A member of the RNA family "COG2827 RNA", 99 nucleotides long. Rfam's curators put it in the seed alignment. The family's RNA type in Rfam is small RNA.

RNA sequence: GCCGAUGCUUUAGAUAGAUACGGGGUUUUAGGCUCUGUCUGUUCUGAGGCUCCGGGCGGCAACGGCACAUCUGCGCAGGGUGCUGCUGCCGUUUACAUA
Numbered sequence: 001g002c003c004g005a006u007g008c009u010u011u012a013g014a015u016a017g018a019u020a021c022g023g024g025g026u027u028u029u030a031g032g033c034u035c036u037g038u039c040u041g042u043u044c045u046g047a048g049g050c051u052c053c054g055g056g057c058g059g060c061a062a063c064g065g066c067a068c069a070u071c072u073g074c075g076c077a078g079g080g081u082g083c084u085g086c087u088g089c090c091g092u093u094u095a096c097a098u099a
Base pairs, nucleotide, nucleotide: 021054022053023052024051025050026049027048028047029046030045031044032043055093056092057091058090059089060088061087063085064084065083066082067081068080